[Rfam]
RNA: tRNA
Nucleotides: 072
Base pairs, nucleotide, nucleotide: 001071002070003069004068005067006066007065010024011023012022013021026042027041028040029039030038048064049063050062051061052060
Number, partner (000 for none) and nucleotide at each position: 001071g002070c003069c004068c005067u006066u007065a008000u009000a010024g011023c012022u013021c014000a015000g016000u017000g018000g019000u020000a021013g022012a023011g024010c025000g026042c027041u028040g029039c030038a031000c032000u033000u034000g035000u036000a037000a038030u039029g040028c041027a042026g043000a044000g045000g046000u047000c048064c049063a050062u051061c052060g053000u054000u055000c056000g057000a058000a059000c060052c061051g062050g063049u064048g065007u066006g067005g068004g069003g070002g071001c072000a